[Rfam]
RNA: Bacterial large subunit ribosomal RNA, nucleotides 612 to 845
RNA sequence: GAGUUACCGUGUGCGGCUCGGUUAAGGACUUACGGUCCGAAGCCUCAGGGAAACCGAGUCUGAAUAGGGCGACAAUUGGUCGUACGUGGUAGACGCGAAACCAGGUGAACUACCCAUGAGCAGGUUGAAGCGCGGGUUAAACUGCGUGGAGGACCGAACCCACUUAGGUUGAAAACUGAGGGGAUGACUUGUGGGGAGGAGUGAAAGUCUAAUCAAACCUGGAGAUAGCUCGUU
Numbered sequence: 001g002a003g004u005u006a007c008c009g010u011g012u013g014c015g016g017c018u019c020g021g022u023u024a025a026g027g028a029c030u031u032a033c034g035g036u037c038c039g040a041a042g043c044c045u046c047a048g049g050g051a052a053a054c055c056g057a058g059u060c061u062g063a064a065u066a067g068g069g070c071g072a073c074a075a076u077u078g079g080u081c082g083u084a085c086g087u088g089g090u091a092g093a094c095g096c097g098a099a100a101c102c103a104g105g106u107g108a109a110c111u112a113c114c115c116a117u118g119a120g121c122a123g124g125u126u127g128a129a130g131c132g133c134g135g136g137u138u139a140a141a142c143u144g145c146g147u148g149g150a151g152g153a154c155c156g157a158a159c160c161c162a163c164u165u166a167g168g169u170u171g172a173a174a175a176c177u178g179a180g181g182g183g184a185u186g187a188c189u190u191g192u193g194g195g196g197a198g199g200a201g202u203g204a205a206a207g208u209c210u211a212a213u214c215a216a217a218c219c220u221g222g223a224g225a226u227a228g229c230u231c232g233u234u
Stems, first nucleotide, its partner, number of pairs: 005091013020044004026038003048055002058070004094232002097229001101222006110198002113195008121186001123155004130147006159183003163180005200210002